[Rfam]
RNA sequence: UCGAUUAGAGUUUGAUCCUGGCUCAAGGUGAACGCUAGCGGCGGGCCUAACACAUGCAAGUCGUGCGGAGGGGGCAACCCCUCAGCGGCGGACGGGUGCGUAACACGUAGGUAACCUGCCCCCAGGAGGGGGAUAACCCUGGGAAACCAGGGCUAAUACCCCAUAAAGCAAGGGCACCGCAUGGUGGGCUUGCUAAAGCCGAAAGGCGCCUGGGGAGGGGCCUGCGGCCGAUUAGCUAGUUGGUAGGGUAACGGCCUACCAAGGCGAUGAUCGGUAGCUGGUCUGAGAGGACGGCCAGCCACAGGGACACUGAGAUACGGGUCCCACUCCUACGGGAGGCAGCAGUGGGGAAUAUUGGGCAAUGGGCGAAAGCCUGACCCAGCCACGCCGCGUGCCGGAUGAAGGUCCUAUGGAUUGUAAACGGCUUUUCCCAGGGAGAAAAAGGGAGGUCGCCUCCCUCUGAUCGUACCUGGGGAAUAAGCGCCGGCUAACUACGUGCCAGCAGCCGCGGUAAGACGUAGGGCGCAAGCGUUACCCGGAGUUACUG
Numbered sequence: 001u002c003g004a005u006u007a008g009a010g011u012u013u014g015a016u017c018c019u020g021g022c023u024c025a026a027g028g029u030g031a032a033c034g035c036u037a038g039c040g041g042c043g044g045g046c047c048u049a050a051c052a053c054a055u056g057c058a059a060g061u062c063g064u065g066c067g068g069a070g071g072g073g074g075c076a077a078c079c080c081c082u083c084a085g086c087g088g089c090g091g092a093c094g095g096g097u098g099c100g101u102a103a104c105a106c107g108u109a110g111g112u113a114a115c116c117u118g119c120c121c122c123c124a125g126g127a128g129g130g131g132g133a134u135a136a137c138c139c140u141g142g143g144a145a146a147c148c149a150g151g152g153c154u155a156a157u158a159c160c161c162c163a164u165a166a167a168g169c170a171a172g173g174g175c176a177c178c179g180c181a182u183g184g185u186g187g188g189c190u191u192g193c194u195a196a197a198g199c200c201g202a203a204a205g206g207c208g209c210c211u212g213g214g215g216a217g218g219g220g221c222c223u224g225c226g227g228c229c230g231a232u233u234a235g236c237u238a239g240u241u242g243g244u245a246g247g248g249u250a251a252c253g254g255c256c257u258a259c260c261a262a263g264g265c266g267a268u269g270a271u272c273g274g275u276a277g278c279u280g281g282u283c284u285g286a287g288a289g290g291a292c293g294g295c296c297a298g299c300c301a302c303a304g305g306g307a308c309a310c311u312g313a314g315a316u317a318c319g320g321g322u323c324c325c326a327c328u329c330c331u332a333c334g335g336g337a338g339g340c341a342g343c344a345g346u347g348g349g350g351a352a353u354a355u356u357g358g359g360c361a362a363u364g365g366g367c368g369a370a371a372g373c374c375u376g377a378c379c380c381a382g383c384c385a386c387g388c389c390g391c392g393u394g395c396c397g398g399a400u401g402a403a404g405g406u407c408c409u410a411u412g413g414a415u416u417g418u419a420a421a422c423g424g425c426u427u428u429u430c431c432c433a434g435g436g437a438g439a440a441a442a443a444g445g446g447a448g449g450u451c452g453c454c455u456c457c458c459u460c461u462g463a464u465c466g467u468a469c470c471u472g473g474g475g476a477a478u479a480a481g482c483g484c485c486g487g488c489u490a491a492c493u494a495c496g497u498g499c500c501a502g503c504a505g506c507c508g509c510g511g512u513a514a515g516a517c518g519u520a521g522g523g524c525g526c527a528a529g530c531g532u533u534a535c536c537c538g539g540a541g542u543u544a545c546u547g
Stems, first nucleotide, its partner, number of pairs: 008024005027536003031533006038391006044384002046349001051347003055344003060089003065086002068083006096302003106226007115219002120215007128162004137152006168193005176185003198207003228274003235265003240262008277299004281292004304325005327338004355381001357380003363376005394425004404416004430474006439464001445458002481526005492521005502509002
Bacterial small subunit ribosomal RNA: a 547-nucleotide part of an RNA from an uncultured bacterium. Rfam 15.1 lists 42,628 matches to the family in 10,626 species. A reference for the family is Yusupov et al. (2001), "Crystal structure of the ribosome at 5.5 A resolution", Science. The sequence is in the family's curated seed alignment. Its family is annotated with structural constituent of ribosome and ribosome in the Gene Ontology.